[Rfam]
RNA sequence: CCUCCCUUUUAAUUCUGACCAGAGAGUCAGAGAAGGGGCCGCUUCUGCUCACUGGCAGUAUUCUGCCUGUGGCGUGGAUUCUCCGGACCUCUUCGACUGUCGAAGAGGUUUUUUGUU
Numbered sequence: 001c002c003u004c005c006c007u008u009u010u011a012a013u014u015c016u017g018a019c020c021a022g023a024g025a026g027u028c029a030g031a032g033a034a035g036g037g038g039c040c041g042c043u044u045c046u047g048c049u050c051a052c053u054g055g056c057a058g059u060a061u062u063c064u065g066c067c068u069g070u071g072g073c074g075u076g077g078a079u080u081c082u083c084c085g086g087a088c089c090u091c092u093u094c095g096a097c098u099g100u101c102g103a104a105g106a107g108g109u110u111u112u113u114u115g116u117u
Stems, first nucleotide, its partner, number of pairs: 003038007014031006045076001049072004054067005085111012
RNA: PyrR binding site
Organism: Alkalicoccus urumqiensis